[Rfam]
RNA sequence: UUUCUUGUGUUAAGGUGCAUCUAGUGCAGUUAGUGGCGUAGUCUAGAAUCUACUGCCCUAAAUGCUCCUUCUGGCACAAGGG
Numbered sequence: 001u002u003u004c005u006u007g008u009g010u011u012a013a014g015g016u017g018c019a020u021c022u023a024g025u026g027c028a029g030u031u032a033g034u035g036g037c038g039u040a041g042u043c044u045a046g047a048a049u050c051u052a053c054u055g056c057c058c059u060a061a062a063u064g065c066u067c068c069u070u071c072u073g074g075c076a077c078a079a080g081g082g
Base pairs, nucleotide, nucleotide: 004080005079006078007077009075010074011073013069014068015067017065018064019063020062022060023059024058026056027055029054031052032051033050